This 68-nucleotide sequence from Comamonas aquatica belongs to the Rfam family "ilvH RNA".
RNA sequence: GACGAAUCUAUUGUCUGCCAAACCUGCGGCUUACCGGUCGCGGGGGAGGGCAGCGAAAAGAGGAAUCC
Numbered sequence: 001g002a003c004g005a006a007u008c009u010a011u012u013g014u015c016u017g018c019c020a021a022a023c024c025u026g027c028g029g030c031u032u033a034c035c036g037g038u039c040g041c042g043g044g045g046g047a048g049g050g051c052a053g054c055g056a057a058a059a060g061a062g063g064a065a066u067c068c
Base pairs, nucleotide, nucleotide: 011056012055013054015053016052017051018050019049023044024043025042026041027040028039029038030037031036
Description:
The source organism's lineage runs through Bacteria, Pseudomonadota, Comamonadaceae, Comamonas and Comamonas aquatica.